A member of the RNA family "mir-8364 microRNA precursor family" from Pristionchus pacificus, 61 nucleotides long.
Pairs were carried over by alignment from the consensus structure, which was predicted with RNAalifold.
Gene Ontology terms of the family: RISC complex and miRNA-mediated post-transcriptional gene silencing.
Taxonomically the source falls in Pristionchus (Eukaryota, Protostomia, Nematoda, Rhabditina).
The match comes from Rfam's covariance-model search (72 bits).
RNA sequence: UCUUCAUUUCUCACGCUCUUUCUCCGCUCUGACAGGUGAGAGAGUAUGCGAAAUGAAGAGA
Numbered sequence: 001u002c003u004u005c006a007u008u009u010c011u012c013a014c015g016c017u018c019u020u021u022c023u024c025c026g027c028u029c030u031g032a033c034a035g036g037u038g039a040g041a042g043a044g045u046a047u048g049c050g051a052a053a054u055g056a057a058g059a060g061a
Stems, first nucleotide, its partner, number of pairs: 001059007010050001012048002015045003019041004